[Rfam]
RNA sequence: CAAGCUCGAAUGAUAAUUACAAGUGCAUAGUUCAGAUGACCAAACUGUGAUUACUUGAACAAAAUAGUCUUGCACUCCUAGCUGAUAUGUGCUGA
Numbered sequence: 001c002a003a004g005c006u007c008g009a010a011u012g013a014u015a016a017u018u019a020c021a022a023g024u025g026c027a028u029a030g031u032u033c034a035g036a037u038g039a040c041c042a043a044a045c046u047g048u049g050a051u052u053a054c055u056u057g058a059a060c061a062a063a064a065u066a067g068u069c070u071u072g073c074a075c076u077c078c079u080a081g082c083u084g085a086u087a088u089g090u091g092c093u094g095a
Base pairs, nucleotide, nucleotide: 004092005091007089008088
About this RNA: The record is a 95-nucleotide RNA sequence from Hordeum vulgare, which matches "Small nucleolar RNA snR60/Z15/Z230/Z193/J17" in Rfam. The source organism's lineage runs through Eukaryota, Petrosaviidae, commelinids, Hordeinae and Hordeum vulgare. For this family Rfam cites "A computational screen for methylation guide snoRNAs in yeast" (Lowe and Eddy, Science, 1999). By type it is a C/D-box small nucleolar RNA. The base pairs follow the family's consensus structure. Clan: SNORD77 clan.